This 89-nucleotide RNA sequence from Flavisphingopyxis soli belongs to the Rfam family "Glycine riboswitch aptamer". A search with the family's covariance model found it, with a score of 64 bits. The base pairs follow the family's consensus structure. Rfam describes the family as follows. This family represents the bacterial glycine riboswitch.

RNA sequence: AUUGGCGGCGCGGGAGAGAGGGCGGCGACGUCCUCACCGAAGGAGCAACCGCCCCGGAAACUCUCAGGUCCCAGGACCGCGUCGCGAUG
Numbered sequence: 001a002u003u004g005g006c007g008g009c010g011c012g013g014g015a016g017a018g019a020g021g022g023c024g025g026c027g028a029c030g031u032c033c034u035c036a037c038c039g040a041a042g043g044a045g046c047a048a049c050c051g052c053c054c055c056g057g058a059a060a061c062u063c064u065c066a067g068g069u070c071c072c073a074g075g076a077c078c079g080c081g082u083c084g085c086g087a088u089g
Base pairs, nucleotide, nucleotide: 006084007083008082009081010080011079012078013077020034021033022032036069037068038067039065040064043063044062045061049057050056